[Rfam]
Nucleotides: 072
Base pairs, nucleotide, nucleotide: 043060044059045058046057047056048055049054
Number, partner (000 for none) and nucleotide at each position: 001000g002000u003000g004000u005000u006000u007000u008000u009000c010000a011000u012000g013000g014000u015000a016000u017000u018000a019000g020000a021000u022000u023000a024000u025000u026000a027000a028000g029000g030000u031000u032000a033000a034000u035000u036000g037000a038000a039000a040000a041000u042000u043060g044059c045058u046057u047056g048055u049054c050000g051000u052000g053000a054049g055048a056047c057046a058045a059044g060043c061000a062000a063000u064000u065000u066000u067000u068000u069000u070000u071000g072000a
A member of the RNA family "Bacteroidetes FopS (family of paralogous sRNAs)" from Prevotella sp. P3-120, 72 nucleotides long. About the family: The RNA-binding protein RbpB and BTncRNA_FopS sRNA are involved in the post-transcription regulation of polysaccharide utilisation loci (PUL). FopS sRNAs function as post-transcriptional repressors by binding to the vicinity of the start codon of the first mRNA of target PUL polycistrons, typically corresponding to the cognate SusC homolog, impeding translation of the respective glycan transporter. The family's consensus secondary structure is taken from published work. Rfam links the family to the GO term sRNA-mediated gene silencing. NCBI's taxonomy places the organism under Bacteria, Bacteroidota, Bacteroidia, Prevotellaceae, Prevotella. The match comes from Rfam's covariance-model search (73 bits).